[Rfam]
RNA: Bacterial RNase P class A
RNA sequence: AUGGGCCGGCAGACGGUCGCGUCGCCGCAUCCGUGCUUCCGGGCCGAGUGCGGUGCCGAGGAACGUCCGGGCUCCACAGAGCAGGGCGGUGGGUAACACCCACCCGGGGCAACCCGCGAGACAGUGCCACAGAAAGUAGACCGCCACGGGCUCCGGCCCGCGGUAAGGGUGAAACGGUGGUGUAAGAGACCACCAGAGGCUGCGGUGACGCAGUCGGCUCGGUAAACCUCGCCCGGAGCAAGGUCAGACAGGAAGCGCUAACGCUGCUCGCUCAGCUUCCGGGUAGACCGCUGGAGGGCUGCGGCAACGUAGUCCCGAGAUAGAUGGCCGUCAGGGAGUCCGCUCCCCCACAGAACCCGGCGUAUCGCCGGCCCAUUCAC
Numbered sequence: 001a002u003g004g005g006c007c008g009g010c011a012g013a014c015g016g017u018c019g020c021g022u023c024g025c026c027g028c029a030u031c032c033g034u035g036c037u038u039c040c041g042g043g044c045c046g047a048g049u050g051c052g053g054u055g056c057c058g059a060g061g062a063a064c065g066u067c068c069g070g071g072c073u074c075c076a077c078a079g080a081g082c083a084g085g086g087c088g089g090u091g092g093g094u095a096a097c098a099c100c101c102a103c104c105c106g107g108g109g110c111a112a113c114c115c116g117c118g119a120g121a122c123a124g125u126g127c128c129a130c131a132g133a134a135a136g137u138a139g140a141c142c143g144c145c146a147c148g149g150g151c152u153c154c155g156g157c158c159c160g161c162g163g164u165a166a167g168g169g170u171g172a173a174a175c176g177g178u179g180g181u182g183u184a185a186g187a188g189a190c191c192a193c194c195a196g197a198g199g200c201u202g203c204g205g206u207g208a209c210g211c212a213g214u215c216g217g218c219u220c221g222g223u224a225a226a227c228c229u230c231g232c233c234c235g236g237a238g239c240a241a242g243g244u245c246a247g248a249c250a251g252g253a254a255g256c257g258c259u260a261a262c263g264c265u266g267c268u269c270g271c272u273c274a275g276c277u278u279c280c281g282g283g284u285a286g287a288c289c290g291c292u293g294g295a296g297g298g299c300u301g302c303g304g305c306a307a308c309g310u311a312g313u314c315c316c317g318a319g320a321u322a323g324a325u326g327g328c329c330g331u332c333a334g335g336g337a338g339u340c341c342g343c344u345c346c347c348c349c350a351c352a353g354a355a356c357c358c359g360g361c362g363u364a365u366c367g368c369c370g371g372c373c374c375a376u377u378c379a380c
Stems, first nucleotide, its partner, number of pairs: 001376010011365001012332007020058002023055008063363003067360005072238004079269004084234005089103005104118001105116004119229002124227002126223003141168002143164003147160005176194006196218001198215007242289004251280006263271002296315008